Source information:
c-di-GMP-I riboswitch aptamer: an 86-nucleotide RNA from Paenibacillus ferrarius.
[Rfam]
RNA sequence: AAGAGAUAAGGGCAAACUUGAUGAAAGUCAAGGACGCAAAGCUAGAGGGGCUACUCGAUCAUGUCGAAUGCCAGCCAGUUCCCGCU
Numbered sequence: 001a002a003g004a005g006a007u008a009a010g011g012g013c014a015a016a017c018u019u020g021a022u023g024a025a026a027g028u029c030a031a032g033g034a035c036g037c038a039a040a041g042c043u044a045g046a047g048g049g050g051c052u053a054c055u056c057g058a059u060c061a062u063g064u065c066g067a068a069u070g071c072c073a074g075c076c077a078g079u080u081c082c083c084g085c086u
Stems, first nucleotide, its partner, number of pairs: 012037002017032006040080004047076002049072003056066004